[Rfam]
RNA sequence: UAAGACACACGCGGGAGUCCGGACGCACCGGGCUGAGAGUGGGGCUGGACGGCCCCUGACCGUACGAACCUGAUCCGGGUCAUGCCGGCGAAGGGAGGGGAUGUUCCCGUGCG
Numbered sequence: 001u002a003a004g005a006c007a008c009a010c011g012c013g014g015g016a017g018u019c020c021g022g023a024c025g026c027a028c029c030g031g032g033c034u035g036a037g038a039g040u041g042g043g044g045c046u047g048g049a050c051g052g053c054c055c056c057u058g059a060c061c062g063u064a065c066g067a068a069c070c071u072g073a074u075c076c077g078g079g080u081c082a083u084g085c086c087g088g089c090g091a092a093g094g095g096a097g098g099g100g101a102u103g104u105u106c107c108c109g110u111g112c113g
Stems, first nucleotide, its partner, number of pairs: 008099001010097001011063004016057001017033005041055003069094003075088004
Overview:
A member of the RNA family "TPP riboswitch aptamer (THI element)" from Wenjunlia tyrosinilytica, 113 nucleotides long. The family's consensus secondary structure is taken from published work. The source organism's lineage runs through Bacteria, Bacillati, Actinomycetes, Kitasatosporales and Wenjunlia. A search with the family's covariance model found it, with a score of 62 bits.